[Rfam]
Nucleotides: 211
Stems, first nucleotide, its partner, number of pairs: 001211010012200008021191013035177007043169011055157005061151001063149004068144003072140001074138007084128003091121002094118008
Number, partner (000 for none) and nucleotide at each position: 001211c002210c003209g004208a005207a006206a007205u008204c009203u010202g011000a012200g013199c014198c015197g016196g017195a018194a019193c020000c021191a022190a023189g024188c025187g026186g027185c028184a029183u030182c031181c032180a033179a034000c035177a036176u037175u038174u039173g040172u041171c042000a043169c044168a045167g046166c047165c048164a049163u050162g051161c052160u053159c054000a055157c056156c057155g058154c059153c060000a061151c062000g063149g064148a065147c066146c067000g068144c069143a070142a071000a072140c073000c074138c075137c076136u077135g078134a079133a080132c081000u082000a083000c084128g085127g086126g087000u088000u089000u090000a091121c092120a093000c094118c095117a096116g097115u098114a099113g100112c101111u102000a103000g104000u105000g106000g107000c108000a109000u110000u111101a112100g113099c114098u115097a116096c117095u118094g119000c120092u121091g122000u123000a124000a125000a126086c127085c128084c129000g130000u131000a132080g133079u134078u135077c136076a137075g138074g139000a140072g141000a142070u143069u144068g145000g146066g147065g148064u149063c150000g151061g152000c153059g154058g155057c156056g157055g158000c159053g160052a161051g162050c163049a164048u165047g166046g167045c168044u169043g170000u171041g172040a173039c174038a175037a176036a177035u178000g179033u180032u181031g182030g183029a184028u185027g186026c187025c188024g189023c190022u191021u192000a193019g194018u195017u196016c197015c198014g199013g200012c201000g202010c203009a204008g205007a206006u207005u208004u209003c210002g211001g